A member of the RNA family "Xanthomonas sRNA sX9" from Xanthomonas oryzae, 76 nucleotides long. Rfam 15.1 lists 309 matches to the family in 52 species. The match comes from Rfam's covariance-model search (56 bits). The family's consensus secondary structure was predicted with RNAalifold.
[Rfam]
RNA sequence: AUGUGGCACGCGAUCACUGCAGCUCUUCAGCGCAAUCCAUACCGACCUGGCGACUGCUCGCGACGUGUUGUUAGCC
Numbered sequence: 001a002u003g004u005g006g007c008a009c010g011c012g013a014u015c016a017c018u019g020c021a022g023c024u025c026u027u028c029a030g031c032g033c034a035a036u037c038c039a040u041a042c043c044g045a046c047c048u049g050g051c052g053a054c055u056g057c058u059c060g061c062g063a064c065g066u067g068u069u070g071u072u073a074g075c076c
Stems, first nucleotide, its partner, number of pairs: 002016002022033002025030001047074007